mir-9195 microRNA precursor family: an 87-nucleotide RNA sequence from Cnephaeus nilssonii. Lineage of the source: Eukaryota > Dipnotetrapodomorpha > Tetrapoda > Mammalia > Cnephaeus. Gene Ontology terms of the family: RISC complex and miRNA-mediated post-transcriptional gene silencing.
[Rfam]
RNA sequence: AGAGGCACUCCACGGCUGGGGUGGAACGCUUGCCUUGUCGCUGUGGCGACAGAGCAAGCAUUCCGCCAGGCCGCUCAUGCUGCCCGC
Numbered sequence: 001a002g003a004g005g006c007a008c009u010c011c012a013c014g015g016c017u018g019g020g021g022u023g024g025a026a027c028g029c030u031u032g033c034c035u036u037g038u039c040g041c042u043g044u045g046g047c048g049a050c051a052g053a054g055c056a057a058g059c060a061u062u063c064c065g066c067c068a069g070g071c072c073g074c075u076c077a078u079g080c081u082g083c084c085c086g087c
Stems, first nucleotide, its partner, number of pairs: 004084003013073005020067007028059006037050005